The record is an 84-nucleotide sequence from Oligella urethralis, which matches "sRNA-Xcc1" in Rfam.
The base pairs follow the family's consensus structure, which was predicted with RNAalifold.
It is annotated as a small RNA.
RNA sequence: GGCCGGGUGUGCGGCUAAUAAAAGACCUGAAAGGGAAAUAUGCCCGCCGUCUUCGAGCGGUUUUGAGCACCUGGCCGCCUUCUC
Dot-bracket structure: (((((((((...(((((........(((....)))...)).))).(((((......)))))......)))))))))........

Annotation:
The match comes from Rfam's covariance-model search (74 bits).